[Rfam]
RNA: mir-52 microRNA precursor family
Organism: Caenorhabditis sp. 36 PRJEB53466
RNA sequence: CUUACACUGACAGACCACCCGUACAUAUGUUUCCGUGCUUGGCAUCGCGCUCCAAACACGUUACAAUUUAUGGGUCGCCGGUCAUGGGUU
Dot-bracket structure: ................(((((((.((.(((...((((.((((.........)))).))))..))))).)))))))...............